[Rfam]
RNA sequence: UAGGCUUGCUGGGCUCCGCAGCGGCGCCGGGGCGUGUGCUAUGGGUGCACCGCCCGACACCGUAACCCAUACGGAGCUUUU
Numbered sequence: 001u002a003g004g005c006u007u008g009c010u011g012g013g014c015u016c017c018g019c020a021g022c023g024g025c026g027c028c029g030g031g032g033c034g035u036g037u038g039c040u041a042u043g044g045g046u047g048c049a050c051c052g053c054c055c056g057a058c059a060c061c062g063u064a065a066c067c068c069a070u071a072c073g074g075a076g077c078u079u080u081u
Stems, first nucleotide, its partner, number of pairs: 012078007022062003030055005
Dot-bracket structure: ...........(((((((...(((.....(((((................)))))....))).........)))))))...

Shown here is an 81-nucleotide RNA from Martelella alba, a member of the family "ybhL leader". Lineage of the source: Bacteria > Pseudomonadati > Alphaproteobacteria > Hyphomicrobiales > Martelella. A search with the family's covariance model found it, with a score of 54 bits. Its family is annotated with regulation of gene expression in the Gene Ontology. Rfam's curators write: This family is a putative regulatory RNA structure that is found upstream of an uncharacterized membrane protein in alpha-proteobacteria.